[Rfam]
RNA sequence: ACUCACUAAAACUGUAUGUCGCUCUGGAUAAGAGUGUCUGCUAAAUGACUAAAA
Dot-bracket structure: ............((((...((((((.....))))))..))).)...........
Numbered sequence: 001a002c003u004c005a006c007u008a009a010a011a012c013u014g015u016a017u018g019u020c021g022c023u024c025u026g027g028a029u030a031a032g033a034g035u036g037u038c039u040g041c042u043a044a045a046u047g048a049c050u051a052a053a054a
Stems, first nucleotide, its partner, number of pairs: 013043001014041003020036006